[Rfam]
RNA sequence: GGUCAUGAGUGCCAGCGUCAAGCCCCGGCUCGCUGGCCGGCAACCCUCCUCCGCGGUGGGGUGCCCCGGGUGAGGACCAGGCGAGCGACAUCCGUCGCUCGCAAGCGCGGGAG
Numbered sequence: 001g002g003u004c005a006u007g008a009g010u011g012c013c014a015g016c017g018u019c020a021a022g023c024c025c026c027g028g029c030u031c032g033c034u035g036g037c038c039g040g041c042a043a044c045c046c047u048c049c050u051c052c053g054c055g056g057u058g059g060g061g062u063g064c065c066c067c068g069g070g071u072g073a074g075g076a077c078c079a080g081g082c083g084a085g086c087g088a089c090a091u092c093c094g095u096c097g098c099u100c101g102c103a104a105g106c107g108c109g110g111g112a113g
Stems, first nucleotide, its partner, number of pairs: 001078004009038001011037006021030002039065003044061003048056002081102009

About this RNA
SAM (S-adenosyl methionine) riboswitch aptamer: a 113-nucleotide RNA from Phycicoccus duodecadis. Taxonomically the source falls in Phycicoccus (Bacteria, Bacillati, Actinomycetota, Micrococcales).